[Rfam]
RNA: Alphaproteobacteria transfer-messenger RNA
RNA sequence: GGGGUGUCAGGAGUUCGCUUCUGACUAUGGCAAUAAACGGAAUAUGGAAUAGGCGUAGUGGACCCGGGGGCGGUACCCGGCGUCUCCACCAAAUAUCCAGCCUUGCAAGGGUUUGGACAACUGGGGACGAAACAGGCUCGACACGCGCAGUAAAGAUAUUCUUUUUGCCCGGUAUUGUACCACCGUUAUCGGGCUAUUUUUACAAGUGCCAAUGAUAACUCUGAGGUGCUCGCUGUUGCUGCAUAAGCGAUAAGCGCGGUUCGGGAGGGCACCGGGCAACAGAAGCCCUCCCA
Numbered sequence: 001g002g003g004g005u006g007u008c009a010g011g012a013g014u015u016c017g018c019u020u021c022u023g024a025c026u027a028u029g030g031c032a033a034u035a036a037a038c039g040g041a042a043u044a045u046g047g048a049a050u051a052g053g054c055g056u057a058g059u060g061g062a063c064c065c066g067g068g069g070g071c072g073g074u075a076c077c078c079g080g081c082g083u084c085u086c087c088a089c090c091a092a093a094u095a096u097c098c099a100g101c102c103u104u105g106c107a108a109g110g111g112u113u114u115g116g117a118c119a120a121c122u123g124g125g126g127a128c129g130a131a132a133c134a135g136g137c138u139c140g141a142c143a144c145g146c147g148c149a150g151u152a153a154a155g156a157u158a159u160u161c162u163u164u165u166u167g168c169c170c171g172g173u174a175u176u177g178u179a180c181c182a183c184c185g186u187u188a189u190c191g192g193g194c195u196a197u198u199u200u201u202a203c204a205a206g207u208g209c210c211a212a213u214g215a216u217a218a219c220u221c222u223g224a225g226g227u228g229c230u231c232g233c234u235g236u237u238g239c240u241g242c243a244u245a246a247g248c249g250a251u252a253a254g255c256g257c258g259g260u261u262c263g264g265g266a267g268g269g270c271a272c273c274g275g276g277c278a279a280c281a282g283a284a285g286c287c288c289u290c291c292c293a
Stems, first nucleotide, its partner, number of pairs: 006025008029169005039162007054147003058144003064080005081129007170185004175196001177194001180192002257274004264291006